Actino-pnp RNA: a 65-nucleotide RNA sequence from Mycobacterium conspicuum.
The match comes from Rfam's covariance-model search (58 bits).
The family's consensus secondary structure is taken from published work.
RNA sequence: GGCGGUCUUCGGUAGUGGCUGCCGGGCUCUUUGUGGGGGCCGGCGGCUUCGAUCGAAUGGCCGUA
Numbered sequence: 001g002g003c004g005g006u007c008u009u010c011g012g013u014a015g016u017g018g019c020u021g022c023c024g025g026g027c028u029c030u031u032u033g034u035g036g037g038g039g040c041c042g043g044c045g046g047c048u049u050c051g052a053u054c055g056a057a058u059g060g061c062c063g064u065a
Base pairs, nucleotide, nucleotide: 002064003063004062005061006060007059009056010055011054012053013052017048018047019046020045021044022043023042024041025040027038028037029036